[Rfam]
RNA sequence: AGCAAUUCUCAGGGCGGGGUGUGAUUCCCCACCGGCGGUAAGCCUUUUAGGUAAGCCCGCGAGCGCUUUAUUAUUUACACUCCCAAUAAUAAAGGUCAGCAGAUCUGGUUUAAUGCCAGAGCCGACGGUUAUAGUCCGGAUGGAAGAGAAUACAA
Numbered sequence: 001a002g003c004a005a006u007u008c009u010c011a012g013g014g015c016g017g018g019g020u021g022u023g024a025u026u027c028c029c030c031a032c033c034g035g036c037g038g039u040a041a042g043c044c045u046u047u048u049a050g051g052u053a054a055g056c057c058c059g060c061g062a063g064c065g066c067u068u069u070a071u072u073a074u075u076u077a078c079a080c081u082c083c084c085a086a087u088a089a090u091a092a093a094g095g096u097c098a099g100c101a102g103a104u105c106u107g108g109u110u111u112a113a114u115g116c117c118a119g120a121g122c123c124g125a126c127g128g129u130u131a132u133a134g135u136c137c138g139g140a141u142g143g144a145a146g147a148g149a150a151u152a153c154a155a
Stems, first nucleotide, its partner, number of pairs: 005151006017029003031135002033124002035060004055122002063100002104120005126138003
The family of this 155-nucleotide sequence from Psychromonas sp. Urea-02u-13 is "FMN riboswitch aptamer (RFN element)".
Rfam's curators write: The RFN element is a highly conserved domain that is found frequently in the 5'-untranslated regions of prokaryotic mRNAs that encode for flavin mononucleotide (FMN) biosynthesis and transport proteins.
Pairs were carried over by alignment from the consensus structure, which is taken from published work.